[Rfam]
Rfam assigns this 185-nucleotide sequence from Kingdonia uniflora to the family "MIR159 microRNA precursor family".
It scores 89 bits against the family's covariance model.
The family has 66 seed sequences and 3,649 matches in Rfam 15.1.
NCBI's taxonomy places the organism under Eukaryota, Streptophytina, Embryophyta, Euphyllophyta, Kingdonia.
Gene Ontology terms of the family: RISC complex and miRNA-mediated post-transcriptional gene silencing.

RNA sequence: ACUAAGAAAAGGGAGCUCACUUCAGUCCAAUAGAAGGGGUAAAGAGCUGCCACUUCAUGGAUUCGGCCACACUUAGUAUGAUGCAUCUUUCAUAUAAGUGUUAACCAUUUGCAUGGUGUGGGAGCAACUCCUUUCGCUCUCUCAUCUCGCCAAUUGGACUGAAGGGAGCUCCAAAACAUCUCUUA
Numbered sequence: 001a002c003u004a005a006g007a008a009a010a011g012g013g014a015g016c017u018c019a020c021u022u023c024a025g026u027c028c029a030a031u032a033g034a035a036g037g038g039g040u041a042a043a044g045a046g047c048u049g050c051c052a053c054u055u056c057a058u059g060g061a062u063u064c065g066g067c068c069a070c071a072c073u074u075a076g077u078a079u080g081a082u083g084c085a086u087c088u089u090u091c092a093u094a095u096a097a098g099u100g101u102u103a104a105c106c107a108u109u110u111g112c113a114u115g116g117u118g119u120g121g122g123a124g125c126a127a128c129u130c131c132u133u134u135c136g137c138u139c140u141c142u143c144a145u146c147u148c149g150c151c152a153a154u155u156g157g158a159c160u161g162a163a164g165g166g167a168g169c170u171c172c173a174a175a176a177c178a179u180c181u182c183u184u185a
Stems, first nucleotide, its partner, number of pairs: 013171006020164001023161007036148001047124002050121003056115004